[Rfam]
The family of this 129-nucleotide RNA from Nyctereutes procyonoides is "Small nucleolar RNA SNORA1". NCBI's taxonomy places the organism under Eukaryota, Deuterostomia, Teleostomi, Theria, Nyctereutes. About the family: ACA1 is a member of the H/ACA class of snoRNA that guide the sites of modification of uridines to pseudouridines.
RNA sequence: AGCCUCAUUCUCGAUGAAAGCGGGCACGAUUGUUUGUGGUGUCUACUAAUGGUUAAUGUGGCUACAUUGAGACACAGAUAAGAUUAUGCUUCCAUUAUUGCAAGGGCAAGAAUGAGACCUGUAACAUUU
Numbered sequence: 001a002g003c004c005u006c007a008u009u010c011u012c013g014a015u016g017a018a019a020g021c022g023g024g025c026a027c028g029a030u031u032g033u034u035u036g037u038g039g040u041g042u043c044u045a046c047u048a049a050u051g052g053u054u055a056a057u058g059u060g061g062c063u064a065c066a067u068u069g070a071g072a073c074a075c076a077g078a079u080a081a082g083a084u085u086a087u088g089c090u091u092c093c094a095u096u097a098u099u100g101c102a103a104g105g106g107c108a109a110g111a112a113u114g115a116g117a118c119c120u121g122u123a124a125c126a127u128u129u
Stems, first nucleotide, its partner, number of pairs: 002062003006058003022044006074122004087108005
Pairs were carried over by alignment from the consensus structure, which was predicted with PFOLD. The family's RNA type in Rfam is H/ACA-box small nucleolar RNA.